The family of this 233-nucleotide RNA sequence from Mahella australiensis is "Group II catalytic intron D1-D4-6".
RNA sequence: AAAGACCCAACCCGGUAAAGUUUAGCGAACAGCCGGUACAAGCCUUGGAGCCGAAGCCGCGAGGCUAGUUUUAAGCGUAGGCAUGGGAGUAUGAAAGCUGCAAUACGAAAGUGUGAAGCGAUUGAGCCCCGUUAGACUGAUAUGCGGAAGCCGAUGCUUUGAUAGUAGUAGCAGGCAUUAAUGUAUCGCUCGAUAGCGCGAGAGCAUGCAGGUUCCGCCGGGGUCGGAGAGCG
Numbered sequence: 001a002a003a004g005a006c007c008c009a010a011c012c013c014g015g016u017a018a019a020g021u022u023u024a025g026c027g028a029a030c031a032g033c034c035g036g037u038a039c040a041a042g043c044c045u046u047g048g049a050g051c052c053g054a055a056g057c058c059g060c061g062a063g064g065c066u067a068g069u070u071u072u073a074a075g076c077g078u079a080g081g082c083a084u085g086g087g088a089g090u091a092u093g094a095a096a097g098c099u100g101c102a103a104u105a106c107g108a109a110a111g112u113g114u115g116a117a118g119c120g121a122u123u124g125a126g127c128c129c130c131g132u133u134a135g136a137c138u139g140a141u142a143u144g145c146g147g148a149a150g151c152c153g154a155u156g157c158u159u160u161g162a163u164a165g166u167a168g169u170a171g172c173a174g175g176c177a178u179u180a181a182u183g184u185a186u187c188g189c190u191c192g193a194u195a196g197c198g199c200g201a202g203a204g205c206a207u208g209c210a211g212g213u214u215c216c217g218c219c220g221g222g223g224u225c226g227g228a229g230a231g232c233g
Stems, first nucleotide, its partner, number of pairs: 012036005020030003023201001025199002039085002042082004046077002048072003052068001054066001056065003123227001124225001126224006144218006150176003155170004182211001188205004
Source information
Rfam links the family to the GO term Group II intron splicing. A search with the family's covariance model found it, with a score of 127 bits. Lineage of the source: Bacteria > Clostridia > Mahellales > Mahellaceae > Mahella australiensis.